This 308-nucleotide RNA sequence from Scophthalmus maximus belongs to the Rfam family "7SK RNA". The base pairs follow the family's consensus structure, which is taken from published work. The family's RNA type in Rfam is non-coding RNA gene. The family is grouped with related families in Rfam's "7SK clan".

RNA sequence: GGAUGUGAGGGCGAUCUGGCUGCGACAUCUGUCACCCCAUUGAUCGCUAGGGUUGAUUCGGCUGAUCUGGCUAGGCGGGUGUCCCCUUCCUCCCUCACCACUCCAUGUGUGUCCCUCCCGAAGCCCCGCGCUCGGUGGAAGAGGACGACGUCCCCCCCGGAGGACGACCAUUCAUCGGUAUACCAGUAGCUGCGCUCCCUGCUAGAACCUCCAAACAAGCUCAAGGCCCAUUUGUAGGAGAAACGUAGGGAAGUCAAGCUUCAGACACAUCCAAAUGAGGCACUGCACGUGGCAGUCUGCCUUACUUU
Numbered sequence: 001g002g003a004u005g006u007g008a009g010g011g012c013g014a015u016c017u018g019g020c021u022g023c024g025a026c027a028u029c030u031g032u033c034a035c036c037c038c039a040u041u042g043a044u045c046g047c048u049a050g051g052g053u054u055g056a057u058u059c060g061g062c063u064g065a066u067c068u069g070g071c072u073a074g075g076c077g078g079g080u081g082u083c084c085c086c087u088u089c090c091u092c093c094c095u096c097a098c099c100a101c102u103c104c105a106u107g108u109g110u111g112u113c114c115c116u117c118c119c120g121a122a123g124c125c126c127c128g129c130g131c132u133c134g135g136u137g138g139a140a141g142a143g144g145a146c147g148a149c150g151u152c153c154c155c156c157c158c159g160g161a162g163g164a165c166g167a168c169c170a171u172u173c174a175u176c177g178g179u180a181u182a183c184c185a186g187u188a189g190c191u192g193c194g195c196u197c198c199c200u201g202c203u204a205g206a207a208c209c210u211c212c213a214a215a216c217a218a219g220c221u222c223a224a225g226g227c228c229c230a231u232u233u234g235u236a237g238g239a240g241a242a243a244c245g246u247a248g249g250g251a252a253g254u255c256a257a258g259c260u261u262c263a264g265a266c267a268c269a270u271c272c273a274a275a276u277g278a279g280g281c282a283c284u285g286c287a288c289g290u291g292g293c294a295g296u297c298u299g300c301c302u303u304a305c306u307u308u
Base pairs, nucleotide, nucleotide: 001104002103003102005098006097007096008095009094010093011092013089014088018086019085024083025082026081027080028079029078030077031076032075033074037070038069039068042067043066044065045064046062047061048060112167113166114163115162116161117160118135119134120133121132123131124130137156138155143153144152145151189259190258191257195253196252197250198249199248200247201246202245209240210239211238212237215235216234217233218232219231273308274307275306277303278302279301280300281299282296283295284294285293286292